RNA: mir-548 microRNA precursor family
RNA sequence: UAUUAGGUUGGUGCAAAAGUAAUUGUGGUUUUUGUCAUUAGAAGUAAUGGCAAAAACUACAAUUACUUUUGCACUGACUUGAUA
Number, nucleotide and partner (000 for none) at each position: 001u084002a083003u082004u081005a080006g079007g078008u077009u076010g075011g074012u073013g072014c071015a070016a069017a068018a067019g066020u065021a064022a063023u062024u061025g060026u059027g058028g057029u056030u055031u054032u053033u052034g051035u050036c049037a048038u047039u046040a045041g000042a000043a000044g000045u040046a039047a038048u037049g036050g035051c034052a033053a032054a031055a030056a029057c028058u027059a026060c025061a024062a023063u022064u021065a020066c019067u018068u017069u016070u015071g014072c013073a012074c011075u010076g009077a008078c007079u006080u005081g004082a003083u002084a001